[Rfam]
RNA sequence: CUUCAACGAGCCCAGCCACAACGGCUCUUCACGGUCCUGGCCGUAGGUGGCGAGCAGGGCCUGAGCCUC
Numbered sequence: 001c002u003u004c005a006a007c008g009a010g011c012c013c014a015g016c017c018a019c020a021a022c023g024g025c026u027c028u029u030c031a032c033g034g035u036c037c038u039g040g041c042c043g044u045a046g047g048u049g050g051c052g053a054g055c056a057g058g059g060c061c062u063g064a065g066c067c068u069c
Stems, first nucleotide, its partner, number of pairs: 014026004028065003032059001037054002041050003

ASpks TB sRNA: a 69-nucleotide sequence from Streptomyces dangxiongensis. The source organism's lineage runs through Bacteria, Actinomycetota, Actinomycetes, Streptomycetaceae and Streptomyces. It is annotated as an antisense RNA. A reference for the family is Arnvig and Young (2009), "Identification of small RNAs in Mycobacterium tuberculosis", Mol Microbiol. The family's consensus secondary structure is taken from published work. It scores 74 bits against the family's covariance model.